[Rfam]
The family of this 92-nucleotide sequence from Metabacillus lacus is "pan motif". NCBI's taxonomy places the organism under Bacteria, Bacillota, Caryophanales, Bacillaceae, Metabacillus. Rfam classes the family as a cis-regulatory element. Pairs were carried over by alignment from the consensus structure, which is taken from published work.
RNA sequence: UGGGUAGUAUCCCCUGUGGAGCUGCACCUUAAGAAAGUUUUGUAACCGAAAAAUAGUUCUGCCUUGAUCCUUUUGGGGACUGGGACAGAGGG
Dot-bracket structure: .(((((((.((.......))))))).))..............................((((((.(.(((......)))).))).)))....